A member of the RNA family "Purine riboswitch aptamer" from Alteribacter lacisalsi, 102 nucleotides long. The organism belongs to Alteribacter, within Bacteria.

RNA sequence: AAAAGAAAACACGUGAAACCUCAUAUAAUCCCGGGAAUAGGGCCCGAAAGUUUCUACCCGGCGACCGUAAAUCGCCGGACUAUGAGGACGAUCCGCAUACAU
Numbered sequence: 001a002a003a004a005g006a007a008a009a010c011a012c013g014u015g016a017a018a019c020c021u022c023a024u025a026u027a028a029u030c031c032c033g034g035g036a037a038u039a040g041g042g043c044c045c046g047a048a049a050g051u052u053u054c055u056a057c058c059c060g061g062c063g064a065c066c067g068u069a070a071a072u073c074g075c076c077g078g079a080c081u082a083u084g085a086g087g088a089c090g091a092u093c094c095g096c097a098u099a100c101a102u
Stems, first nucleotide, its partner, number of pairs: 019087007029049001032046004058078007
Dot-bracket structure: ..................(((((((...(..((((.......))))..)........(((((((.......)))))))..)))))))...............
Description
It scores 86 bits against the family's covariance model.